[Rfam]
RNA sequence: GUGGCGGUGAAGUCCCAGGUGGCGUCGGAGUCGAGCAGGGCGUCGUCGCCGAACCGGUCGCCGUCGCCGAGCACCGCGACGGCGACCUCCUCUCCGUACUGGCCCACGGAGGUCUGGUUGAUCCGGCCGUGCGCGAUGAGGUGGAGCUGCUCGGCGGCGGCGCCGCGCUCCACGAGGACCUCACCGGCGCGGAAGUCGCGCUGUACGCACCGGUCGGCGAUCGCGGUCAGCACGUCGUCCUCGUCGAAGUCCCGCAGCAGGGCCAGUUCGCCGAGCUCCCGGGGGAUGACCCGGACGCGUGCGCCGUCCUGGAUGAAGUCGAUGCGUCCGUCGCCGACGGUGUACGUCAGUCGGCGGUUCACCCGGUAGGUGCCGCCCUUGGUCUCCACCCAGGGCAGCAUCCGCAGCAGCCAGCGGGAGGUGAUCUCCUGCAUCUGCGGGGCGGACUUGGUGGUGGUGGCGAGGUUGCGGGCGGCCGCCGUGCCCAGGCUGGUGCGCGGCGG
Numbered sequence: 001g002u003g004g005c006g007g008u009g010a011a012g013u014c015c016c017a018g019g020u021g022g023c024g025u026c027g028g029a030g031u032c033g034a035g036c037a038g039g040g041c042g043u044c045g046u047c048g049c050c051g052a053a054c055c056g057g058u059c060g061c062c063g064u065c066g067c068c069g070a071g072c073a074c075c076g077c078g079a080c081g082g083c084g085a086c087c088u089c090c091u092c093u094c095c096g097u098a099c100u101g102g103c104c105c106a107c108g109g110a111g112g113u114c115u116g117g118u119u120g121a122u123c124c125g126g127c128c129g130u131g132c133g134c135g136a137u138g139a140g141g142u143g144g145a146g147c148u149g150c151u152c153g154g155c156g157g158c159g160g161c162g163c164c165g166c167g168c169u170c171c172a173c174g175a176g177g178a179c180c181u182c183a184c185c186g187g188c189g190c191g192g193a194a195g196u197c198g199c200g201c202u203g204u205a206c207g208c209a210c211c212g213g214u215c216g217g218c219g220a221u222c223g224c225g226g227u228c229a230g231c232a233c234g235u236c237g238u239c240c241u242c243g244u245c246g247a248a249g250u251c252c253c254g255c256a257g258c259a260g261g262g263c264c265a266g267u268u269c270g271c272c273g274a275g276c277u278c279c280c281g282g283g284g285g286a287u288g289a290c291c292c293g294g295a296c297g298c299g300u301g302c303g304c305c306g307u308c309c310u311g312g313a314u315g316a317a318g319u320c321g322a323u324g325c326g327u328c329c330g331u332c333g334c335c336g337a338c339g340g341u342g343u344a345c346g347u348c349a350g351u352c353g354g355c356g357g358u359u360c361a362c363c364c365g366g367u368a369g370g371u372g373c374c375g376c377c378c379u380u381g382g383u384c385u386c387c388a389c390c391c392a393g394g395g396c397a398g399c400a401u402c403c404g405c406a407g408c409a410g411c412c413a414g415c416g417g418g419a420g421g422u423g424a425u426c427u428c429c430u431g432c433a434u435c436u437g438c439g440g441g442g443c444g445g446a447c448u449u450g451g452u453g454g455u456g457g458u459g460g461c462g463a464g465g466u467u468g469c470g471g472g473c474g475g476c477c478g479c480c481g482u483g484c485c486c487a488g489g490c491u492g493g494u495g496c497g498c499g500g501c502g503g
Stems, first nucleotide, its partner, number of pairs: 006390004011385002014382002018328002021325001025322004031316002036312001038310003045305001047303003058229001060227005065111001067109002077102001079100001082097003117222001119220001122217002127212001129210002131206001133204003138199001140197001143196001150191001155189002158186003163177001166174002234296003241289005250282002254278001256277003260271001262269001329342004353377005360372004391431005397425001399423003403418001405416001407415001437476002440473001443470002446467001447465003451461002477502002480497003485493003

The record is a 503-nucleotide sequence from Streptomyces sp. YIM 121038, which matches "Saccharopolyspora sRNA 350" in Rfam. Gene Ontology term of the family: regulation of secondary metabolite biosynthetic process. NCBI's taxonomy places the organism under Bacteria, Bacillati, Actinomycetota, Actinomycetes, Streptomyces. The base pairs follow the family's consensus structure, which was predicted with RNAfold.